[Rfam]
Rfam assigns this 90-nucleotide sequence from Pristionchus pacificus to the family "mir-2237 microRNA precursor family".

RNA sequence: GGUAUCGGUGCCAAAUACCCGUAGUUUUCGGACAGUUCGUAAAUUUUAACGCACUGCCUAGAAUAUACGGGUUCCUGGCUAAGAGAACCA
Numbered sequence: 001g002g003u004a005u006c007g008g009u010g011c012c013a014a015a016u017a018c019c020c021g022u023a024g025u026u027u028u029c030g031g032a033c034a035g036u037u038c039g040u041a042a043a044u045u046u047u048a049a050c051g052c053a054c055u056g057c058c059u060a061g062a063a064u065a066u067a068c069g070g071g072u073u074c075c076u077g078g079c080u081a082a083g084a085g086a087a088c089c090a
Base pairs, nucleotide, nucleotide: 001089002088003087005084006083010079011078012077013076017072018071019070020069021068026063027062028061030059031058033056034055035054036053038051039050040049

Pairs were carried over by alignment from the consensus structure, which was predicted with RNAalifold.